[Rfam]
A member of the RNA family "Lysine riboswitch aptamer" from Staphylococcus saccharolyticus, 177 nucleotides long.
Pairs were carried over by alignment from the consensus structure, which is taken from published work.
It scores 111 bits against the family's covariance model.
RNA sequence: AGAUUUAGAUGAGGCGCAUCGAUCAUGAGUAAAUUUUAGAAAAUUGUCUGCUAGCAACUGAAAUUGAAAGGGUGAGAUGCCGAAACAACUCAUAAUAGCAGUUAUGGGUCGUUGGACUUUAUGGUUAAGAGCUAUAAGUUUGUCAUUAUUUUUAAAUAAUGGAGUGCAUCACUUGUA
Numbered sequence: 001a002g003a004u005u006u007a008g009a010u011g012a013g014g015c016g017c018a019u020c021g022a023u024c025a026u027g028a029g030u031a032a033a034u035u036u037u038a039g040a041a042a043a044u045u046g047u048c049u050g051c052u053a054g055c056a057a058c059u060g061a062a063a064u065u066g067a068a069a070g071g072g073u074g075a076g077a078u079g080c081c082g083a084a085a086c087a088a089c090u091c092a093u094a095a096u097a098g099c100a101g102u103u104a105u106g107g108g109u110c111g112u113u114g115g116a117c118u119u120u121a122u123g124g125u126u127a128a129g130a131g132c133u134a135u136a137a138g139u140u141u142g143u144c145a146u147u148a149u150u151u152u153u154a155a156a157u158a159a160u161g162g163a164g165u166g167c168a169u170c171a172c173u174u175g176u177a
Stems, first nucleotide, its partner, number of pairs: 008170004016080005024072001032065008084113003088109008114141005120136006143162007
Record summary: Riboswitches are metabolite binding domains within certain messenger RNAs that serve as precision sensors for their corresponding targets. The organism belongs to Staphylococcus, within Bacteria. Its family is annotated with lysine biosynthetic process in the Gene Ontology.